[Rfam]
The record is a 66-nucleotide RNA sequence from Rhinopithecus roxellana, which matches "MAT2A 3'UTR stem loop F" in Rfam. Lineage of the source: Eukaryota > Opisthokonta > Gnathostomata > Euteleostomi > Rhinopithecus. For this family Rfam cites "New families of human regulatory RNA structures identified by comparative analysis of vertebrate genomes" (Parker et al., Genome Res, 2011). It is annotated as a cis-regulatory element. The match comes from Rfam's covariance-model search (82 bits). The family has 26 seed sequences and 403 matches in Rfam 15.1.
RNA sequence: CCUGGAGAAAGCUGACUUGGCUGGUGUGUUGCAGAGAAGCCAGCUUGUUUAUGUGCUUAUUCCAUG
Numbered sequence: 001c002c003u004g005g006a007g008a009a010a011g012c013u014g015a016c017u018u019g020g021c022u023g024g025u026g027u028g029u030u031g032c033a034g035a036g037a038a039g040c041c042a043g044c045u046u047g048u049u050u051a052u053g054u055g056c057u058u059a060u061u062c063c064a065u066g
Stems, first nucleotide, its partner, number of pairs: 001066001003064005009058004014049003019045007026032002